[Rfam]
RNA sequence: AUAUGAUAAUGGCAAACCUAUCGAAAGGUAGGGACGCAAAGCUACGAGUCUAAAGUGGUAACACUAUGACAGUCGGGCCGCCAAG
Number, nucleotide and partner (000 for none) at each position: 001a000002u000003a000004u000005g000006a000007u000008a000009a000010u000011g000012g037013c036014a000015a000016a000017c032018c031019u030020a029021u028022c027023g000024a000025a000026a000027g022028g021029u020030a019031g018032g017033g000034a000035c000036g013037c012038a000039a000040a000041g078042c077043u076044a000045c075046g074047a073048g070049u069050c068051u000052a000053a000054a000055g064056u063057g062058g000059u000060a000061a000062c057063a056064c055065u000066a000067u000068g050069a049070c048071a000072g000073u047074c046075g045076g043077g042078c041079c000080g000081c000082c000083a000084a000085g000

Rfam assigns this 85-nucleotide RNA sequence from Lutispora thermophila to the family "c-di-GMP-I riboswitch aptamer".
The source organism's lineage runs through Bacteria, Bacillota, Lutisporales, Lutispora and Lutispora thermophila.
The base pairs follow the family's consensus structure, which is taken from published work.